Annotation: A member of the RNA family "Nematode sRNA ceN72-3_ceN74-2" from Caenorhabditis bovis, 122 nucleotides long. The match comes from Rfam's covariance-model search (56 bits). Lineage of the source: Eukaryota > Opisthokonta > Rhabditida > Rhabditidae > Caenorhabditis. The base pairs follow the family's consensus structure, which was predicted with WAR.
RNA sequence: GCGAUUGGUCCGGCGUCGGUGGGUUAUCAUGUUCUCUGAUUCGGUCUCUUCGGAGUCGGUUCAGACCUGGUCUCGAGGUUUCGUCCUCGAGACCUUCCCAUCGGCACCCCCUUGACCAUCUG
Numbered sequence: 001g002c003g004a005u006u007g008g009u010c011c012g013g014c015g016u017c018g019g020u021g022g023g024u025u026a027u028c029a030u031g032u033u034c035u036c037u038g039a040u041u042c043g044g045u046c047u048c049u050u051c052g053g054a055g056u057c058g059g060u061u062c063a064g065a066c067c068u069g070g071u072c073u074c075g076a077g078g079u080u081u082c083g084u085c086c087u088c089g090a091g092a093c094c095u096u097c098c099c100a101u102c103g104g105c106a107c108c109c110c111c112u113u114g115a116c117c118a119u120c121u122g
Base pairs, nucleotide, nucleotide: 002122003121006118007117008116009115010114012108013107015105016104017103018102019101020100021099022098023097042059044057046055047054048053064072065071066070074089075088076087077086078085